[Rfam]
A member of the RNA family "c-di-AMP riboswitch aptamer (ydaO/yuaA leader)" from Streptomyces griseoaurantiacus, 173 nucleotides long. It scores 56 bits against the family's covariance model. Its family is annotated with regulation of gene expression and cyclic-di-AMP binding in the Gene Ontology.
RNA sequence: GCGCGGCCUCCGCCGAAUCCGGCCCGCCCCCGCGGGCAGCCGGAACCGGGGACCCAACCGAGACCUGGGGUGAAUCGGCCCACCGCCCCGCGCGCACGGGCCGUAGGGCAGUCCUUCCGGAACCAUCCGCCCGAAUCCGACAGCUAACCCGGUAGGCGGCGUACGGAAGGAGU
Numbered sequence: 001g002c003g004c005g006g007c008c009u010c011c012g013c014c015g016a017a018u019c020c021g022g023c024c025c026g027c028c029c030c031c032g033c034g035g036g037c038a039g040c041c042g043g044a045a046c047c048g049g050g051g052a053c054c055c056a057a058c059c060g061a062g063a064c065c066u067g068g069g070g071u072g073a074a075u076c077g078g079c080c081c082a083c084c085g086c087c088c089c090g091c092g093c094g095c096a097c098g099g100g101c102c103g104u105a106g107g108g109c110a111g112u113c114c115u116u117c118c119g120g121a122a123c124c125a126u127c128c129g130c131c132c133g134a135a136u137c138c139g140a141c142a143g144c145u146a147a148c149c150c151g152g153u154a155g156g157c158g159g160c161g162u163a164c165g166g167a168a169g170g171a172g173u
Base pairs, nucleotide, nucleotide: 011158012157013156014155018044019043020042021041022040023039045153046152047151048150049149050148055067056066068138069137070136076103077102078101079100080099081098106132107131108130109129